The family of this 73-nucleotide sequence from candidate division MSBL1 archaeon SCGC-AAA261D19 is "tRNA". The family's RNA type in Rfam is transfer RNA. The family's consensus secondary structure is taken from published work. The source organism's lineage runs through Archaea, Methanobacteriati, Methanobacteriota and candidate division MSBL1. The match comes from Rfam's covariance-model search (57 bits).
[Rfam]
RNA sequence: AGCCCCGUGGUGUAGCGGUCAAUCAUGCGAGGUUCUGGUCCUCGUGACAGCGGUUCGAAUCCGCUCGGGGCUA
Numbered sequence: 001a002g003c004c005c006c007g008u009g010g011u012g013u014a015g016c017g018g019u020c021a022a023u024c025a026u027g028c029g030a031g032g033u034u035c036u037g038g039u040c041c042u043c044g045u046g047a048c049a050g051c052g053g054u055u056c057g058a059a060u061c062c063g064c065u066c067g068g069g070g071c072u073a
Stems, first nucleotide, its partner, number of pairs: 001072007010026003028044005049065005